Description:
This 82-nucleotide RNA from Collinsella intestinalis belongs to the Rfam family "tRNA". The family has 954 seed sequences and 5,335,975 matches in Rfam 15.1. Rfam's curators write: Transfer RNA (tRNA) molecules are approximately 80 nucleotides in length. It is annotated as a transfer RNA. The family's consensus secondary structure is taken from published work.
[Rfam]
RNA sequence: GGAGGCGUGGCGGAAUUGGCAUACGCAGGAGACUUAAAAUCUUCGGCCUUCGGGAUUGUGGGUUCGAGUCCCACCGCCUCUA
Numbered sequence: 001g002g003a004g005g006c007g008u009g010g011c012g013g014a015a016u017u018g019g020c021a022u023a024c025g026c027a028g029g030a031g032a033c034u035u036a037a038a039a040u041c042u043u044c045g046g047c048c049u050u051c052g053g054g055a056u057u058g059u060g061g062g063u064u065c066g067a068g069u070c071c072c073a074c075c076g077c078c079u080c081u082a
Stems, first nucleotide, its partner, number of pairs: 001081007010026003028044005058074005